[Rfam]
RNA: Xanthine riboswitch aptamer (NMT1 RNA)
RNA sequence: CAACAGAGUAGAAGCGGUCAGGGGCGUGAGGCAUUGAUUCGUGCUUCCCCGGCUCCGGGACAUUGCUCUUUGG
Number, nucleotide and partner (000 for none) at each position: 001c000002a000003a000004c000005a069006g068007a067008g066009u065010a064011g000012a000013a000014g000015c058016g000017g000018u060019c059020a000021g056022g055023g054024g053025c052026g000027u000028g000029a000030g000031g000032c000033a000034u000035u000036g000037a000038u000039u000040c000041g000042u000043g000044c000045u000046u000047c000048c000049c000050c000051g000052g025053c024054u023055c022056c021057g000058g015059g019060a018061c000062a000063u000064u010065g009066c008067u007068c006069u005070u000071u000072g000073g000